[Rfam]
This 126-nucleotide RNA sequence from Sciurus vulgaris belongs to the Rfam family "Small nucleolar RNA SNORA40".

RNA sequence: AGCACUCAUGUAUUUUUGUUUAACUUGUGGACAAAGACUCAUGGACAGAUGCAAAAAAUAAAUCUUCUUUUGCAACCCUGAACUCAUUGUUCAGUAUGAGUUUUGAUAUAUAUAAGCAGGAAUAUU
Numbered sequence: 001a002g003c004a005c006u007c008a009u010g011u012a013u014u015u016u017u018g019u020u021u022a023a024c025u026u027g028u029g030g031a032c033a034a035a036g037a038c039u040c041a042u043g044g045a046c047a048g049a050u051g052c053a054a055a056a057a058a059u060a061a062a063u064c065u066u067c068u069u070u071u072g073c074a075a076c077c078c079u080g081a082a083c084u085c086a087u088u089g090u091u092c093a094g095u096a097u098g099a100g101u102u103u104u105g106a107u108a109u110a111u112a113u114a115a116g117c118a119g120g121a122a123u124a125u126u
Stems, first nucleotide, its partner, number of pairs: 002052003006048001009045001011043001013037007024029001062123002065120002069116004078105001080103008
About the family: The snoRNA ACA 40 belongs to the H/ACA family of snoRNAs and guides the pseudouridylation of 28S rRNA subunit at position U4565. A search with the family's covariance model found it, with a score of 110 bits. Rfam classes the family as an H/ACA-box small nucleolar RNA. For this family Rfam cites "Mapping to nucleotide resolution of pseudouridine residues in large subunit ribosomal RNAs from representative eukaryotes, prokaryotes, archaebacteria, mitochondria and chloroplasts" (Ofengand and Bakin, J Mol Biol, 1997). Gene Ontology terms of the family: nucleolus and RNA processing.